[Rfam]
This 153-nucleotide RNA from Aliigemmobacter aestuarii belongs to the Rfam family "Ruegeria cis2 sRNA". It scores 102 bits against the family's covariance model. It is annotated as a small RNA.
RNA sequence: CGAACUGAAAUGCGGGUUGUAGUUCAGGAAGAUAUAGCCGCGUCCCUGGUCGAUCGUGUGAAACAGGGGGUUCCAGUCGAACAUCGCAAGGAUGUAUCCCGGCAUCAUGUUGGCCACGAACAUCUUGCCCGAGGCGAUCAUGUUGGCGCGCUG
Numbered sequence: 001c002g003a004a005c006u007g008a009a010a011u012g013c014g015g016g017u018u019g020u021a022g023u024u025c026a027g028g029a030a031g032a033u034a035u036a037g038c039c040g041c042g043u044c045c046c047u048g049g050u051c052g053a054u055c056g057u058g059u060g061a062a063a064c065a066g067g068g069g070g071u072u073c074c075a076g077u078c079g080a081a082c083a084u085c086g087c088a089a090g091g092a093u094g095u096a097u098c099c100c101g102g103c104a105u106c107a108u109g110u111u112g113g114c115c116a117c118g119a120a121c122a123u124c125u126u127g128c129c130c131g132a133g134g135c136g137a138u139c140a141u142g143u144u145g146g147c148g149c150g151c152u153g
Stems, first nucleotide, its partner, number of pairs: 002035001004033001006032001011027001014024002037057002040054001041052002044049001064153003068149001070082004086147002089144002092141003098134002100131003103127002107123002110119003